Background:
The family of this 76-nucleotide RNA from Diaphorina citri is "mir-932 microRNA precursor family". Rfam links the family to the GO terms miRNA-mediated post-transcriptional gene silencing and RISC complex. The source organism's lineage runs through Eukaryota, Hexapoda, Dicondylia, Diaphorininae and Diaphorina. It scores 64 bits against the family's covariance model. On this family, see Berezikov et al., Nat Genet 2010: "Evolutionary flux of canonical microRNAs and mirtrons in Drosophila". The base pairs follow the family's consensus structure, which was predicted with RNAalifold.

[Rfam]
RNA sequence: UUUGGCCUCAAUUCCGUAGUGCAUUGCAUGUGGAAUAUUUGAGUCAGUGCAAGCAGUGCGGACUUGAGGCGAAGGU
Numbered sequence: 001u002u003u004g005g006c007c008u009c010a011a012u013u014c015c016g017u018a019g020u021g022c023a024u025u026g027c028a029u030g031u032g033g034a035a036u037a038u039u040u041g042a043g044u045c046a047g048u049g050c051a052a053g054c055a056g057u058g059c060g061g062a063c064u065u066g067a068g069g070c071g072a073a074g075g076u
Stems, first nucleotide, its partner, number of pairs: 006069005013062005020055003024052005